[Rfam]
The family of this 113-nucleotide sequence from Phycicoccus elongatus is "SAM (S-adenosyl methionine) riboswitch aptamer". Its family is annotated with regulation of gene expression and S-adenosylmethionine metabolic process in the Gene Ontology. Pairs were carried over by alignment from the consensus structure, which is taken from published work.
RNA sequence: GGUCAUGAGUCCCAGCACCAAGCCCCGGCUUGCUGGGCGGCAACCCUCCUCCGCGGUGGGGUGCCCCGGGUGAAGACUUGGCGUUCGGCACCCGCCGGACGCAAGCGCGGGUC
Numbered sequence: 001g002g003u004c005a006u007g008a009g010u011c012c013c014a015g016c017a018c019c020a021a022g023c024c025c026c027g028g029c030u031u032g033c034u035g036g037g038c039g040g041c042a043a044c045c046c047u048c049c050u051c052c053g054c055g056g057u058g059g060g061g062u063g064c065c066c067c068g069g070g071u072g073a074a075g076a077c078u079u080g081g082c083g084u085u086c087g088g089c090a091c092c093c094g095c096c097g098g099a100c101g102c103a104a105g106c107g108c109g110g111g112u113c
Base pairs, nucleotide, nucleotide: 001078002077003076004075009038011037012036013035014034015033016032021030022029039065040064041063044061045060046059048056049055081102082101083100084099085098086097087096088095089094